Notes:
Shown here is a 206-nucleotide RNA from Oryza nivara, a member of the family "MIR812 microRNA precursor family". The family has 22 seed sequences and 57,451 matches in Rfam 15.1. The base pairs follow the family's consensus structure, which was predicted with RNAalifold. The match comes from Rfam's covariance-model search (137 bits).
[Rfam]
RNA sequence: AAAAAAACAAACCAUGAGUUUUCGUGUACAACUUUGACGGUCUGUCUUAUAUGAAAUUUUUUUAUAAUUCAUAUUUUCAUUAUUGUUAGAUGAUAAAACAUAAUUAAUAUUUUAUGCGUGACUUAUCUUUUUAAUUUUUUUUUCAUAUUUUUUAAAUAAGUCGGACGGUCAAACGUUGGACACAGAAACCAGGGUGUGUCUUUUUU
Numbered sequence: 001a002a003a004a005a006a007a008c009a010a011a012c013c014a015u016g017a018g019u020u021u022u023c024g025u026g027u028a029c030a031a032c033u034u035u036g037a038c039g040g041u042c043u044g045u046c047u048u049a050u051a052u053g054a055a056a057u058u059u060u061u062u063u064a065u066a067a068u069u070c071a072u073a074u075u076u077u078c079a080u081u082a083u084u085g086u087u088a089g090a091u092g093a094u095a096a097a098a099c100a101u102a103a104u105u106a107a108u109a110u111u112u113u114a115u116g117c118g119u120g121a122c123u124u125a126u127c128u129u130u131u132u133a134a135u136u137u138u139u140u141u142u143u144c145a146u147a148u149u150u151u152u153u154a155a156a157u158a159a160g161u162c163g164g165a166c167g168g169u170c171a172a173a174c175g176u177u178g179g180a181c182a183c184a185g186a187a188a189c190c191a192g193g194g195u196g197u198g199u200c201u202u203u204u205u206u
Stems, first nucleotide, its partner, number of pairs: 027180001029178004033173006040166005046160005